Shown here is a 104-nucleotide RNA sequence from Vibrio palustris, a member of the family "Qrr RNA". A search with the family's covariance model found it, with a score of 102 bits. By type it is a small RNA. Taxonomically the source falls in Vibrio (Bacteria, Pseudomonadati, Gammaproteobacteria, Vibrionaceae).
RNA sequence: UGACUCUUUAAGCCAAGAGUCACCUAGCCAACUGACGUUGUUAGUGAAUAUUUUUGUUCACAUUAUAUUUAAGCCAAUCGUGUCUUACGAUUGGCUAUUUUUUU
Numbered sequence: 001u002g003a004c005u006c007u008u009u010a011a012g013c014c015a016a017g018a019g020u021c022a023c024c025u026a027g028c029c030a031a032c033u034g035a036c037g038u039u040g041u042u043a044g045u046g047a048a049u050a051u052u053u054u055u056g057u058u059c060a061c062a063u064u065a066u067a068u069u070u071a072a073g074c075c076a077a078u079c080g081u082g083u084c085u086u087a088c089g090a091u092u093g094g095c096u097a098u099u100u101u102u103u104u
Stems, first nucleotide, its partner, number of pairs: 001022006038072003044061007074094008
Dot-bracket structure: ((((((..........))))))...............(((...(((((((....)))))))........))).((((((((.....))))))))..........